A member of the RNA family "Xanthine riboswitch aptamer (NMT1 RNA)" from Rhizobium sp. RU36D, 50 nucleotides long.
The family's consensus secondary structure is taken from published work.
It scores 53 bits against the family's covariance model.
A reference for the family is Yu and Breaker (2020), "A bacterial riboswitch class senses xanthine and uric acid to regulate genes associated with purine oxidation", RNA.
Rfam links the family to the GO term purine nucleobase binding.

RNA sequence: UGCUCGAGUAGAAGCGGUCAGGGUCAUUCGCCCGGGACAUUGCUCGUUAA
Numbered sequence: 001u002g003c004u005c006g007a008g009u010a011g012a013a014g015c016g017g018u019c020a021g022g023g024u025c026a027u028u029c030g031c032c033c034g035g036g037a038c039a040u041u042g043c044u045c046g047u048u049a050a
Stems, first nucleotide, its partner, number of pairs: 005046006015035001018037002021033004
Dot-bracket structure: ....((((((....[..((.((((.....)))).]))...))))))....